[Rfam]
RNA sequence: CCGCCUCCUGGGACAAGUAAUCGAGAAUAGGCCGGGGAUGGUAACAGCCUAUCCUGGAUUACUUGAACCAGGCCACGG
Numbered sequence: 001c002c003g004c005c006u007c008c009u010g011g012g013a014c015a016a017g018u019a020a021u022c023g024a025g026a027a028u029a030g031g032c033c034g035g036g037g038a039u040g041g042u043a044a045c046a047g048c049c050u051a052u053c054c055u056g057g058a059u060u061a062c063u064u065g066a067a068c069c070a071g072g073c074c075a076c077g078g
Base pairs, nucleotide, nucleotide: 002077003076007072008071009070010069011068014065015064016063017062018061019060020059021058022057024055025054027052028051029050030049031048032047